[Rfam]
RNA: Soft rot Enterobacteriaceae Rev 39 5'UTR
RNA sequence: AAAUAUUGCCAUGCACCCAAAAACUGUGAUAACUCUGUAGGCAUUACUUCGAGCAAGAAUGAAAUCGAACCGAAUAUGACAGCCCUUCUACGAGUGAUUAGCCUGGUCGUGAUUAGCGUGGUGGUGAUUAUUAUCCCACCGUGCGGGGCAGCACUUGGAGAAAGAAAGGCUUAAAAAUCAAGUCUGAAUCCGAAAAACCCCCGCACCGAAAGGUUCGGGGGUUUUUUUAUAUUCAGGCAUUAACUGGCAGAGGAAUGAAAAAUGAACAAUAGAAUAAAAUCCUGUUGUUCCCAGCGAGAG
Dot-bracket structure: .....(((.((((..........).))).))).....(.((..((..(((......))...))).....)).)..........(((.....(...(.(.(((((((.(((.....))).(((((.(((....)))))))).(.((((......)))).)..(.....((((.........))))....)..((((((((((((.(((....))).)))))))))))).....)))))).).).)...)..)))((((..(.((..........))....)..))))..............
Numbered sequence: 001a002a003a004u005a006u007u008g009c010c011a012u013g014c015a016c017c018c019a020a021a022a023a024c025u026g027u028g029a030u031a032a033c034u035c036u037g038u039a040g041g042c043a044u045u046a047c048u049u050c051g052a053g054c055a056a057g058a059a060u061g062a063a064a065u066c067g068a069a070c071c072g073a074a075u076a077u078g079a080c081a082g083c084c085c086u087u088c089u090a091c092g093a094g095u096g097a098u099u100a101g102c103c104u105g106g107u108c109g110u111g112a113u114u115a116g117c118g119u120g121g122u123g124g125u126g127a128u129u130a131u132u133a134u135c136c137c138a139c140c141g142u143g144c145g146g147g148g149c150a151g152c153a154c155u156u157g158g159a160g161a162a163a164g165a166a167a168g169g170c171u172u173a174a175a176a177a178u179c180a181a182g183u184c185u186g187a188a189u190c191c192g193a194a195a196a197a198c199c200c201c202c203g204c205a206c207c208g209a210a211a212g213g214u215u216c217g218g219g220g221g222u223u224u225u226u227u228u229a230u231a232u233u234c235a236g237g238c239a240u241u242a243a244c245u246g247g248c249a250g251a252g253g254a255a256u257g258a259a260a261a262a263u264g265a266a267c268a269a270u271a272g273a274a275u276a277a278a279a280u281c282c283u284g285u286u287g288u289u290c291c292c293a294g295c296g297a298g299a300g
Stems, first nucleotide, its partner, number of pairs: 006032003010028003013024001038073001040071002044064002048062001049058002084253003092248001096244001098242001100240001101238006108118003120140005126135003142159001144157004162189001168184004192227012205214003254286004260280001262275002